RNA: MIR2912 microRNA precursor family
Organism: Populus deltoides
RNA sequence: UCUAGAACUUGAGAUAUGGGUCAACACUGAAUAGUAUCUGGGCUGCAGGACAGAUUCCUACUUCUCUGUUGUUGCUACAAUUUAAACUUGAAAACUGUCAUUUUGAAUCUUGGACUCUUCAUGAAAGUUUUAGGCGUAUGUCUUAGCUUUCCAUA
Numbered sequence: 001u002c003u004a005g006a007a008c009u010u011g012a013g014a015u016a017u018g019g020g021u022c023a024a025c026a027c028u029g030a031a032u033a034g035u036a037u038c039u040g041g042g043c044u045g046c047a048g049g050a051c052a053g054a055u056u057c058c059u060a061c062u063u064c065u066c067u068g069u070u071g072u073u074g075c076u077a078c079a080a081u082u083u084a085a086a087c088u089u090g091a092a093a094a095c096u097g098u099c100a101u102u103u104u105g106a107a108u109c110u111u112g113g114a115c116u117c118u119u120c121a122u123g124a125a126a127g128u129u130u131u132a133g134g135c136g137u138a139u140g141u142c143u144u145a146g147c148u149u150u151c152c153a154u155a
Base pairs, nucleotide, nucleotide: 003153005151006150007149008146009145011144012143013142014141015140016139017138018137020135021132023130024129026128027127028126034122035121040118041117042116044114047111048110049109050108053104054103061097067091071087072086073085